[Rfam]
Overview:
The family of this 102-nucleotide sequence from Tepidibacter thalassicus is "Glycine riboswitch aptamer". Its family is annotated with glycine biosynthetic process in the Gene Ontology. NCBI's taxonomy places the organism under Bacteria, Bacillati, Bacillota, Tepidibacter, Tepidibacter thalassicus.

RNA sequence: AAGAAGGAUGUAGGAGAGAGCUAAAUGCCGCCGAAGGGACAAGUUUUAUUCUUACCUAGAGAAUAAAAUGAAAUUCUCAGGCAAAAGGACUAUAUCUGGACA
Numbered sequence: 001a002a003g004a005a006g007g008a009u010g011u012a013g014g015a016g017a018g019a020g021c022u023a024a025a026u027g028c029c030g031c032c033g034a035a036g037g038g039a040c041a042a043g044u045u046u047u048a049u050u051c052u053u054a055c056c057u058a059g060a061g062a063a064u065a066a067a068a069u070g071a072a073a074u075u076c077u078c079a080g081g082c083a084a085a086a087g088g089a090c091u092a093u094a095u096c097u098g099g100a101c102a
Base pairs, nucleotide, nucleotide: 006097007096008095009094010093011092012091013090020028021027030082031081032080033078034077037076038075039074043069044068045067046066047065048064049063050062051061052060053059
Dot-bracket structure: .....((((((((......((.....)).(((((..(((...(((((((((((.....)))))))))))....))))).))).......)))))))).....